This 373-nucleotide RNA from Oceanicola granulosus belongs to the Rfam family "Bacterial RNase P class A". The literature on the family includes a 1998 paper in Annu Rev Biochem by Frank and Pace, "Ribonuclease P: unity and diversity in a tRNA processing ribozyme". It is one of the family's seed sequences. The family's consensus secondary structure is taken from published work. Rfam classes the family as a ribozyme. Its family is annotated with tRNA processing, ribonuclease P activity and dimeric ribonuclease P complex in the Gene Ontology.
[Rfam]
RNA sequence: GCGGAUGGCUGGAUGACCGCGGGCUUCGGCCCGAGGAAAGUCCGGACUCCGGCAGGCACGGUGCCGGGUAACGCCCGGCGGGGGCGACCCCAGGGACAGCGCCACAGAGAACAGACCGCCCCGCAUGCGGGGUAAGGGUGAAACGGUGGGGUAAGAGCCCACCGGGGACCGGGCAACCGGGCCCGCAUGGCAAGCCCCACCGGGAGCAAUGCCGAAUAGGGGCCUCGCGCGGGGAAACCCGCAGGGACGCCUGCACCCGAGAGGCCCGGGUUGGCAGCUGGAGGCGCGUCGGCAACGGCGCGUCGAGAGGAAUGGUCAUCCAUCCGGGGGCGACCCCGGGGGACAGAAUCCGGCUUACAGGCCGUCCGCGCAC
Numbered sequence: 001g002c003g004g005a006u007g008g009c010u011g012g013a014u015g016a017c018c019g020c021g022g023g024c025u026u027c028g029g030c031c032c033g034a035g036g037a038a039a040g041u042c043c044g045g046a047c048u049c050c051g052g053c054a055g056g057c058a059c060g061g062u063g064c065c066g067g068g069u070a071a072c073g074c075c076c077g078g079c080g081g082g083g084g085c086g087a088c089c090c091c092a093g094g095g096a097c098a099g100c101g102c103c104a105c106a107g108a109g110a111a112c113a114g115a116c117c118g119c120c121c122c123g124c125a126u127g128c129g130g131g132g133u134a135a136g137g138g139u140g141a142a143a144c145g146g147u148g149g150g151g152u153a154a155g156a157g158c159c160c161a162c163c164g165g166g167g168a169c170c171g172g173g174c175a176a177c178c179g180g181g182c183c184c185g186c187a188u189g190g191c192a193a194g195c196c197c198c199a200c201c202g203g204g205a206g207c208a209a210u211g212c213c214g215a216a217u218a219g220g221g222g223c224c225u226c227g228c229g230c231g232g233g234g235a236a237a238c239c240c241g242c243a244g245g246g247a248c249g250c251c252u253g254c255a256c257c258c259g260a261g262a263g264g265c266c267c268g269g270g271u272u273g274g275c276a277g278c279u280g281g282a283g284g285c286g287c288g289u290c291g292g293c294a295a296c297g298g299c300g301c302g303u304c305g306a307g308a309g310g311a312a313u314g315g316u317c318a319u320c321c322a323u324c325c326g327g328g329g330g331c332g333a334c335c336c337c338g339g340g341g342g343a344c345a346g347a348a349u350c351c352g353g354c355u356u357a358c359a360g361g362c363c364g365u366c367c368g369c370g371c372a373c
Stems, first nucleotide, its partner, number of pairs: 001369010011358001012320007020033005038356003042353005047206004055252002059202005064078005079093001080091004094197002099195002101191003116137002118133006145163006164186001165184003169180004210276004220267006244258003284303008